[Rfam]
RNA sequence: AAAGGAGGAGUCCAAAGGGAUAGCAUGAUCCAAAAUUGUGAUUUGUUUUAGGGGCUGAAAAAUAAAGGAUCAAUGCGAUCCCUUUGGAUGCUUCCUC
Numbered sequence: 001a002a003a004g005g006a007g008g009a010g011u012c013c014a015a016a017g018g019g020a021u022a023g024c025a026u027g028a029u030c031c032a033a034a035a036u037u038g039u040g041a042u043u044u045g046u047u048u049u050a051g052g053g054g055c056u057g058a059a060a061a062a063u064a065a066a067g068g069a070u071c072a073a074u075g076c077g078a079u080c081c082c083u084u085u086g087g088a089u090g091c092u093u094c095c096u097c
Stems, first nucleotide, its partner, number of pairs: 003096004008091001010089012023076003026072006